RNA: mir-1302 microRNA precursor family
Nucleotides: 052
Stems, first nucleotide, its partner, number of pairs: 006048007014040003018036004022031001
Number, partner (000 for none) and nucleotide at each position: 001000u002000u003000u004000c005000u006048a007047a008046u009045g010044u011043a012042a013000g014040u015039a016038u017000g018036u019035u020034c021033u022031g023000u024000a025000a026000a027000a028000u029000a030000u031022u032000u033021g034020g035019a036018a037000c038016a039015u040014a041000c042012u043011u044010a045009u046008a047007u048006u049000a050000a051000a052000a